[Rfam]
About this RNA:
The record is a 310-nucleotide sequence from Phycomyces blakesleeanus, which matches "Nuclear RNase P" in Rfam. The organism belongs to Phycomyces blakesleeanus, within Eukaryota. Pairs were carried over by alignment from the consensus structure, which is taken from published work. The family's RNA type in Rfam is ribozyme.

RNA sequence: GAGGUAGUAAGCUUAUGUGUACGGGCAAACAAACGAUUGGACUUGUUCCUUUUUAUAAAUAACCCGUGGGAAGGUCUGAGAAAAACCACAAUGCUCUUACCGAGUAACUUGCGAAAGUGAGUGUGAGCAACCAGCGAUUAUUUCCUUGUUUGCCGCUAUAACUGUUGAAGGUCUUUUUCCUUGUGAGAAAGACUGGAGGGUUGGCAAACUUGGGUAUUUGAAACCGGCUUGCGGGUGGGAACGCUAUGCAGUGCAAUACAUAGGACUGGCACUUGUGCCAGCAACUCGAUUCAGACUACUCUUCUUCCUC
Numbered sequence: 001g002a003g004g005u006a007g008u009a010a011g012c013u014u015a016u017g018u019g020u021a022c023g024g025g026c027a028a029a030c031a032a033a034c035g036a037u038u039g040g041a042c043u044u045g046u047u048c049c050u051u052u053u054u055a056u057a058a059a060u061a062a063c064c065c066g067u068g069g070g071a072a073g074g075u076c077u078g079a080g081a082a083a084a085a086c087c088a089c090a091a092u093g094c095u096c097u098u099a100c101c102g103a104g105u106a107a108c109u110u111g112c113g114a115a116a117g118u119g120a121g122u123g124u125g126a127g128c129a130a131c132c133a134g135c136g137a138u139u140a141u142u143u144c145c146u147u148g149u150u151u152g153c154c155g156c157u158a159u160a161a162c163u164g165u166u167g168a169a170g171g172u173c174u175u176u177u178u179c180c181u182u183g184u185g186a187g188a189a190a191g192a193c194u195g196g197a198g199g200g201u202u203g204g205c206a207a208a209c210u211u212g213g214g215u216a217u218u219u220g221a222a223a224c225c226g227g228c229u230u231g232c233g234g235g236u237g238g239g240a241a242c243g244c245u246a247u248g249c250a251g252u253g254c255a256a257u258a259c260a261u262a263g264g265a266c267u268g269g270c271a272c273u274u275g276u277g278c279c280a281g282c283a284a285c286u287c288g289a290u291u292c293a294g295a296c297u298a299c300u301c302u303u304c305u306u307c308c309u310c
Stems, first nucleotide, its partner, number of pairs: 001310004007304001009302001012264007021067005036052001039049003076294005084236001086234002092106005107122006123232006142216001266281006